[Rfam]
RNA: mir-7131 microRNA precursor family
RNA sequence: GAAAUGGAUAGGGUGAUUAUGAUGACGUCCCGUGCGGCCUUAAGGCCGCACGGGACGUCAUCAUAAUCACCCUAUUCAUUUCAA
Numbered sequence: 001g002a003a004a005u006g007g008a009u010a011g012g013g014u015g016a017u018u019a020u021g022a023u024g025a026c027g028u029c030c031c032g033u034g035c036g037g038c039c040u041u042a043a044g045g046c047c048g049c050a051c052g053g054g055a056c057g058u059c060a061u062c063a064u065a066a067u068c069a070c071c072c073u074a075u076u077c078a079u080u081u082c083a084a
Base pairs, nucleotide, nucleotide: 001082002081003080004079005078006077007076009074010073011072012071013070014069015068016067017066018065019064020063021062022061023060024059025058026057027056029054030053031052032051033050034049035048036047037046038045039044